[Rfam]
RNA sequence: AAGAGUUGUCACCGGCGUCACUACUGUGAUAACUCUGUAGGCAUUCAUUCGACCCGAAGUAAAAUGAAAACCUAUUUAUGAAAGUCCUAGCCCAAGUGAUUAGCCUAGUCGUGAUUAGCGUGGUGGUGAUUAUUAUCCCACCGUGCGGGGCUGCACUUGGACGACGAAUAGCUUAGCAAACAAGCUUAACUCUCAAGAAAACCCCCGCACCGAAAGGACGGGGGUUUUUUUUUGCACCUUAUUUUUUGGCAGGGUAAACGUAAAAUGUAUAAGGAACAGACCAU
Numbered sequence: 001a002a003g004a005g006u007u008g009u010c011a012c013c014g015g016c017g018u019c020a021c022u023a024c025u026g027u028g029a030u031a032a033c034u035c036u037g038u039a040g041g042c043a044u045u046c047a048u049u050c051g052a053c054c055c056g057a058a059g060u061a062a063a064a065u066g067a068a069a070a071c072c073u074a075u076u077u078a079u080g081a082a083a084g085u086c087c088u089a090g091c092c093c094a095a096g097u098g099a100u101u102a103g104c105c106u107a108g109u110c111g112u113g114a115u116u117a118g119c120g121u122g123g124u125g126g127u128g129a130u131u132a133u134u135a136u137c138c139c140a141c142c143g144u145g146c147g148g149g150g151c152u153g154c155a156c157u158u159g160g161a162c163g164a165c166g167a168a169u170a171g172c173u174u175a176g177c178a179a180a181c182a183a184g185c186u187u188a189a190c191u192c193u194c195a196a197g198a199a200a201a202c203c204c205c206c207g208c209a210c211c212g213a214a215a216g217g218a219c220g221g222g223g224g225u226u227u228u229u230u231u232u233u234g235c236a237c238c239u240u241a242u243u244u245u246u247u248g249g250c251a252g253g254g255u256a257a258a259c260g261u262a263a264a265a266u267g268u269a270u271a272a273g274g275a276a277c278a279g280a281c282c283a284u
Stems, first nucleotide, its partner, number of pairs: 005033008014024001017021001037075005044068005050059001086254003090250003094247002098243003102239001103237001106234003110120003122142005128137003143162002146159004163194002170186005196230012210217002263284001266278002